mir-166 microRNA precursor family: a 124-nucleotide RNA from Zea mays. The literature on the family includes a 2001 paper in Cell by Ambros, "microRNAs: tiny regulators with great potential". It is one of the family's seed sequences. This family represents the plant microRNA (miRNA) precursor mir-166.
RNA sequence: UGAGUGGAAUGUUGUCUGGUUCAAGGUCUUGCUUUCCGAUUUGAGAAUGAUCCAUGCUUGCAUGUGUAGGUUUUUUUGUUCCUCAGAUCUACAAGAUCUCGGACCAGGCUUCAUUCCCCUCAGG
Numbered sequence: 001u002g003a004g005u006g007g008a009a010u011g012u013u014g015u016c017u018g019g020u021u022c023a024a025g026g027u028c029u030u031g032c033u034u035u036c037c038g039a040u041u042u043g044a045g046a047a048u049g050a051u052c053c054a055u056g057c058u059u060g061c062a063u064g065u066g067u068a069g070g071u072u073u074u075u076u077u078g079u080u081c082c083u084c085a086g087a088u089c090u091a092c093a094a095g096a097u098c099u100c101g102g103a104c105c106a107g108g109c110u111u112c113a114u115u116c117c118c119c120u121c122a123g124g
Stems, first nucleotide, its partner, number of pairs: 001122004006117006014109006022101001024099008